A member of the RNA family "mir-87 microRNA precursor family" from Diatraea saccharalis, 71 nucleotides long. The match comes from Rfam's covariance-model search (54 bits). Pairs were carried over by alignment from the consensus structure, which was predicted with RNAalifold.
RNA sequence: CACUAAUGGGCCUGAAUUGUUGCUCUAACCUGUAUUUGGCAAGGUGAGCAAACUUUCAGGUGUGUUGGUGC
Dot-bracket structure: .((((((..((((((....((.(((...(((..........))).))).))....))))))..))))))..